RNA sequence: CUCCGCCAGCAGCAGCGCAAAAGUAAGGGUGGCAUGGUAUAAUAUUGCCACCCUUAUUUCUGUGCUGCUGCCUUCAGAG
Numbered sequence: 001c002u003c004c005g006c007c008a009g010c011a012g013c014a015g016c017g018c019a020a021a022a023g024u025a026a027g028g029g030u031g032g033c034a035u036g037g038u039a040u041a042a043u044a045u046u047g048c049c050a051c052c053c054u055u056a057u058u059u060c061u062g063u064g065c066u067g068c069u070g071c072c073u074u075c076a077g078a079g
Stems, first nucleotide, its partner, number of pairs: 001079003005075001011069008020059001022058008
Dot-bracket structure: (((.(.....((((((((.(.((((((((.....................)))))))))..)))))))).....).)))

Annotation:
Shown here is a 79-nucleotide sequence from Chrysemys picta, a member of the family "mir-16 microRNA precursor family". For this family Rfam cites "Structural Basis for pri-miRNA Recognition by Drosha" (Jin et al., Mol Cell, 2020). Its family is annotated with RISC complex and miRNA-mediated post-transcriptional gene silencing in the Gene Ontology. The family's consensus secondary structure was predicted with PFOLD. Its Rfam clan is "mir-15 clan".